[Rfam]
RNA sequence: ACGCCCGACCGCACCGGAAGCGCGGCCAAGAGGGGCCGGGAGCCCGGCACCACCACUGCCCUGCUGUCCGGACGGUCUCCUGAACCGAGGCGUCAUG
Numbered sequence: 001a002c003g004c005c006c007g008a009c010c011g012c013a014c015c016g017g018a019a020g021c022g023c024g025g026c027c028a029a030g031a032g033g034g035g036c037c038g039g040g041a042g043c044c045c046g047g048c049a050c051c052a053c054c055a056c057u058g059c060c061c062u063g064c065u066g067u068c069c070g071g072a073c074g075g076u077c078u079c080c081u082g083a084a085c086c087g088a089g090g091c092g093u094c095a096u097g
Stems, first nucleotide, its partner, number of pairs: 001093005014071004019065004024060002032053001033050001035048005073087003